[Rfam]
RNA: mir-1302 microRNA precursor family
Organism: Physeter macrocephalus
RNA sequence: UUUUUAGGAUAAGCAUGCCCCACACAAUAUUUGGGACAUGUUUAUACUAAAA
Numbered sequence: 001u002u003u004u005u006a007g008g009a010u011a012a013g014c015a016u017g018c019c020c021c022a023c024a025c026a027a028u029a030u031u032u033g034g035g036a037c038a039u040g041u042u043u044a045u046a047c048u049a050a051a052a
Stems, first nucleotide, its partner, number of pairs: 006048002009045004014040003019035003022031001